This 141-nucleotide sequence from Paraprevotella clara belongs to the Rfam family "Bacteroidete tryptophan peptide leader RNA". The source organism's lineage runs through Bacteria, Bacteroidota, Bacteroidia, Paraprevotella and Paraprevotella clara. Rfam links the family to the GO terms regulation of gene expression and S-adenosylmethionine metabolic process.
RNA sequence: GAAUUUAAAAGACUAAAGCAAUAAUGUUCUCAAAUAAAAAUACAUAUUGGUGGUGGCGCAACUCAAGACCGGAAAAGUCGUGAGGAGCAAGCCUUAUAUGUAUUAUCUACAUUUACCCUAAAAGAAACAUGGAGGCCUGUC
Dot-bracket structure: ...................................(.(.((((((((.((.......((..((....((.......)).....)).))....)).))))))))..).).................................
Numbered sequence: 001g002a003a004u005u006u007a008a009a010a011g012a013c014u015a016a017a018g019c020a021a022u023a024a025u026g027u028u029c030u031c032a033a034a035u036a037a038a039a040a041u042a043c044a045u046a047u048u049g050g051u052g053g054u055g056g057c058g059c060a061a062c063u064c065a066a067g068a069c070c071g072g073a074a075a076a077g078u079c080g081u082g083a084g085g086a087g088c089a090a091g092c093c094u095u096a097u098a099u100g101u102a103u104u105a106u107c108u109a110c111a112u113u114u115a116c117c118c119u120a121a122a123a124g125a126a127a128c129a130u131g132g133a134g135g136c137c138u139g140u141c
Stems, first nucleotide, its partner, number of pairs: 036108001038106001040103008049094002058088002062085002068078002